Shown here is a 75-nucleotide RNA, a member of the family "RAGATH-18 RNA". The base pairs follow the family's consensus structure, which is taken from published work. From the family's description: Actinobacteria, Firmicutes, Fusobacteria, Thermotogae (1 example). The sequence is in the family's curated seed alignment. It is annotated as a small RNA.
RNA sequence: CCUAUGGAGAGUAGAAGAACUUGUGAGUAGUAUUUGAAUUUAGUCCAUACGAAAGCGUACUUGAUGAAGUAGGAA
Numbered sequence: 001c002c003u004a005u006g007g008a009g010a011g012u013a014g015a016a017g018a019a020c021u022u023g024u025g026a027g028u029a030g031u032a033u034u035u036g037a038a039u040u041u042a043g044u045c046c047a048u049a050c051g052a053a054a055g056c057g058u059a060c061u062u063g064a065u066g067a068a069g070u071a072g073g074a075a
Base pairs, nucleotide, nucleotide: 001073002072003071004070005069009062010061011060012059013058022057023056024055030050031049032048036045